[Rfam]
RNA sequence: AGGCAGAUACGCGACUGACGGAAAACGGGCAUGAGCCUGUGUAGGAGAACCUACAGGGAGUGUAUUAUAAAAUAAUAAGCCGACCGUCUGGGCAGCAUGG
Numbered sequence: 001a002g003g004c005a006g007a008u009a010c011g012c013g014a015c016u017g018a019c020g021g022a023a024a025a026c027g028g029g030c031a032u033g034a035g036c037c038u039g040u041g042u043a044g045g046a047g048a049a050c051c052u053a054c055a056g057g058g059a060g061u062g063u064a065u066u067a068u069a070a071a072a073u074a075a076u077a078a079g080c081c082g083a084c085c086g087u088c089u090g091g092g093c094a095g096c097a098u099g100g
Base pairs, nucleotide, nucleotide: 006066007065008064009063010062011061012060015057016056017088018087019086020085021084042053043052044051045050079093080092081091